Notes
This 72-nucleotide sequence from Armadillidium nasatum belongs to the Rfam family "mir-87 microRNA precursor family". It scores 51 bits against the family's covariance model. NCBI's taxonomy places the organism under Eukaryota, Metazoa, Communostraca, Isopoda, Armadillidium.
RNA sequence: UUCUUGCAGGCCUGAUCCUCUGCUCAGCCCUUUAUUACACAAUGGUGAGCAAAGUUUCAGGUGUGUGGGAGG
Numbered sequence: 001u002u003c004u005u006g007c008a009g010g011c012c013u014g015a016u017c018c019u020c021u022g023c024u025c026a027g028c029c030c031u032u033u034a035u036u037a038c039a040c041a042a043u044g045g046u047g048a049g050c051a052a053a054g055u056u057u058c059a060g061g062u063g064u065g066u067g068g069g070a071g072g
Base pairs, nucleotide, nucleotide: 002070003069004068005067006066007065010062011061012060013059014058015057018054019053021051023049024048025047026046028045029044
Dot-bracket structure: .((((((..((((((..((.(.((((.((..............)))))).).))..))))))..))))))..